The record is a 71-nucleotide sequence from a Mycobacteriales bacterium, which matches "6C RNA" in Rfam. The match comes from Rfam's covariance-model search (69 bits). The base pairs follow the family's consensus structure, which is taken from published work. The family's RNA type in Rfam is cis-regulatory element.
RNA sequence: AGUAGUUCGGCUUGGCCCCCCGAAGCCGAACUACGACAGCCCCUGCCACCCCCCGGUGGGGGCUGUCCCCA
Numbered sequence: 001a002g003u004a005g006u007u008c009g010g011c012u013u014g015g016c017c018c019c020c021c022g023a024a025g026c027c028g029a030a031c032u033a034c035g036a037c038a039g040c041c042c043c044u045g046c047c048a049c050c051c052c053c054c055g056g057u058g059g060g061g062g063c064u065g066u067c068c069c070c071a
Stems, first nucleotide, its partner, number of pairs: 002034012035067013